Overview:
A member of the RNA family "Makes More Granules Regulator RNA (mmgR)" from Kaistia soli, 79 nucleotides long. Gene Ontology terms of the family: DNA-templated transcription, termination, response to nitrogen compound and protein binding. Clan: suhB sRNA clan.
RNA sequence: UCGGCCUGCCUCCGCAGGAUGACGUUCCUCCCAAGACUAGGGGGCCCCGGUUUCGCCGGGGCCCCUCUUUUUUGUGCGC
Numbered sequence: 001u002c003g004g005c006c007u008g009c010c011u012c013c014g015c016a017g018g019a020u021g022a023c024g025u026u027c028c029u030c031c032c033a034a035g036a037c038u039a040g041g042g043g044g045c046c047c048c049g050g051u052u053u054c055g056c057c058g059g060g061g062c063c064c065c066u067c068u069u070u071u072u073u074g075u076g077c078g079c
Stems, first nucleotide, its partner, number of pairs: 004023001006021001042064009